RNA sequence: GAUAACCAUAGAUGGUCAUGACAUCAAGGGUGGGGUUAGUUACUAACCUAACAGUUUGGGUGGUGGCAUCAUAUAGUCCUCCCCAGUACAUGGCUUUUCCUGCUAAGAGUAAAGCUCCAAAACCAAGGAAAAGAAGAUGAUGUCCGAGAAUUAAUCCUAAUUUAGCAGGAUCAUCCCA
Numbered sequence: 001g002a003u004a005a006c007c008a009u010a011g012a013u014g015g016u017c018a019u020g021a022c023a024u025c026a027a028g029g030g031u032g033g034g035g036u037u038a039g040u041u042a043c044u045a046a047c048c049u050a051a052c053a054g055u056u057u058g059g060g061u062g063g064u065g066g067c068a069u070c071a072u073a074u075a076g077u078c079c080u081c082c083c084c085a086g087u088a089c090a091u092g093g094c095u096u097u098u099c100c101u102g103c104u105a106a107g108a109g110u111a112a113a114g115c116u117c118c119a120a121a122a123c124c125a126a127g128g129a130a131a132a133g134a135a136g137a138u139g140a141u142g143u144c145c146g147a148g149a150a151u152u153a154a155u156c157c158u159a160a161u162u163u164a165g166c167a168g169g170a171u172c173a174u175c176c177c178a
Stems, first nucleotide, its partner, number of pairs: 136175006144169002
Notes
Antisense RNA which regulates isiA expression: a 178-nucleotide sequence from Cyanobacterium stanieri. The family's consensus secondary structure was predicted with PFOLD. Rfam 15.1 lists 3,397 matches to the family in 659 species. The organism belongs to Cyanobacterium stanieri, within Bacteria.